[Rfam]
RNA sequence: CCAGUGUUAACCUGUGGUCCAAAGUGUCCUACAGAAAAGCUUUGGGUUCCAGCCACAGGGCUGCUGU
Numbered sequence: 001c002c003a004g005u006g007u008u009a010a011c012c013u014g015u016g017g018u019c020c021a022a023a024g025u026g027u028c029c030u031a032c033a034g035a036a037a038a039g040c041u042u043u044g045g046g047u048u049c050c051a052g053c054c055a056c057a058g059g060g061c062u063g064c065u066g067u
Stems, first nucleotide, its partner, number of pairs: 002066003006061003011058001014056005019045007026032002
The family of this 67-nucleotide RNA sequence from Megalops atlanticus is "MAT2A 3'UTR stem loop E". The match comes from Rfam's covariance-model search (46 bits). It is annotated as a cis-regulatory element. For this family Rfam cites "New families of human regulatory RNA structures identified by comparative analysis of vertebrate genomes" (Parker et al., Genome Res, 2011).